[Rfam]
The family of this 181-nucleotide RNA from Haloarcula marismortui is "Sense overlapping transcript RNA 0042 (sot)".
The family's consensus secondary structure was predicted with RNAfold.
By type it is a small RNA.
A search with the family's covariance model found it, with a score of 143 bits.
A reference for the family is Gomes-Filho et al. (2015), "Sense overlapping transcripts in IS1341-type transposase genes are functional non-coding RNAs in archaea", RNA Biol.

RNA sequence: AAGUAUCUCCGAAUCCUCGUAGCGAGGAUAGGAGUAACGGCUGGUUGGCACAGCCAUCAACGCUCCUGUUUGACAAGGAAACUGGUGUAUUUGCACCUCAAGAACAGGUAGUGUCGUAAACCCUAAUAUCCCAAAUCAGCGGUAGCGGUACCGUGGGAUUCCCGCGCCUUCAGGCGCUGGA
Numbered sequence: 001a002a003g004u005a006u007c008u009c010c011g012a013a014u015c016c017u018c019g020u021a022g023c024g025a026g027g028a029u030a031g032g033a034g035u036a037a038c039g040g041c042u043g044g045u046u047g048g049c050a051c052a053g054c055c056a057u058c059a060a061c062g063c064u065c066c067u068g069u070u071u072g073a074c075a076a077g078g079a080a081a082c083u084g085g086u087g088u089a090u091u092u093g094c095a096c097c098u099c100a101a102g103a104a105c106a107g108g109u110a111g112u113g114u115c116g117u118a119a120a121c122c123c124u125a126a127u128a129u130c131c132c133a134a135a136u137c138a139g140c141g142g143u144a145g146c147g148g149u150a151c152c153g154u155g156g157g158a159u160u161c162c163c164g165c166g167c168c169u170u171c172a173g174g175c176g177c178u179g180g181a
Stems, first nucleotide, its partner, number of pairs: 003038002007034004013029007039055005058116001060114004065108007084097005129158004160181003164177005
NCBI's taxonomy places the organism under Archaea, Halobacteria, Haloarculaceae, Haloarcula, Haloarcula marismortui.